[Rfam]
RNA sequence: ACCUGUAUCGAAAGUGACUGUGACGUGUGUGUCGUCAGGUCAUUGAUACUACAGGAACAUCAAGCUGAGAGCUUUUUCCCGUGUUUGAAGGAGUGAAGUGCCUUUACAACCCUGCAGCUCUCAAACA
Numbered sequence: 001a002c003c004u005g006u007a008u009c010g011a012a013a014g015u016g017a018c019u020g021u022g023a024c025g026u027g028u029g030u031g032u033c034g035u036c037a038g039g040u041c042a043u044u045g046a047u048a049c050u051a052c053a054g055g056a057a058c059a060u061c062a063a064g065c066u067g068a069g070a071g072c073u074u075u076u077u078c079c080c081g082u083g084u085u086u087g088a089a090g091g092a093g094u095g096a097a098g099u100g101c102c103u104u105u106a107c108a109a110c111c112c113u114g115c116a117g118c119u120c121u122c123a124a125a126c127a
Stems, first nucleotide, its partner, number of pairs: 002055006013044007022036004066123007083110003088104004
Record summary: The family of this 127-nucleotide RNA from Salarias fasciatus is "Small nucleolar RNA SNORA71". Gene Ontology terms of the family: RNA processing and nucleolus. A reference for the family is Ganot et al. (1997), "The family of box ACA small nucleolar RNAs is defined by an evolutionarily conserved secondary structure and ubiquitous sequence elements essential for RNA accumulation", Genes Dev. About the family: The members of this family belong to the H/ACA class of snoRNAs which bind a number of proteins (including dyskerin, Gar1p and Nop10p) to form snoRNP complexes.